[Rfam]
RNA sequence: AUUGAAUGGGAAUAAAAGGUACAUGUUAAUUGAGUCCGGAAUGUUGAUUUAACGGCAUUUUCGGAAGAUACAAAGGAUACGCUUGGCGGGGGAAUUGUUACGUUCCCCGCCAAAAUCCCCGCCAAGUUUGGGCCGAAUGAGGGCUGAGUUGGCGGGGAUUUUUA
Numbered sequence: 001a002u003u004g005a006a007u008g009g010g011a012a013u014a015a016a017a018g019g020u021a022c023a024u025g026u027u028a029a030u031u032g033a034g035u036c037c038g039g040a041a042u043g044u045u046g047a048u049u050u051a052a053c054g055g056c057a058u059u060u061u062c063g064g065a066a067g068a069u070a071c072a073a074a075g076g077a078u079a080c081g082c083u084u085g086g087c088g089g090g091g092g093a094a095u096u097g098u099u100a101c102g103u104u105c106c107c108c109g110c111c112a113a114a115a116u117c118c119c120c121g122c123c124a125a126g127u128u129u130g131g132g133c134c135g136a137a138u139g140a141g142g143g144c145u146g147a148g149u150u151g152g153c154g155g156g157g158a159u160u161u162u163u164a
Stems, first nucleotide, its partner, number of pairs: 008107005049085001051083001053081002057078002060075002064071001086098004114160012
Listeria sRNA rli38: a 164-nucleotide RNA sequence from Lacticaseibacillus sharpeae.
The family's consensus secondary structure was predicted with RNAalifold.
Lineage of the source: Bacteria > Lactobacillales > Lactobacillaceae > Lacticaseibacillus > Lacticaseibacillus sharpeae.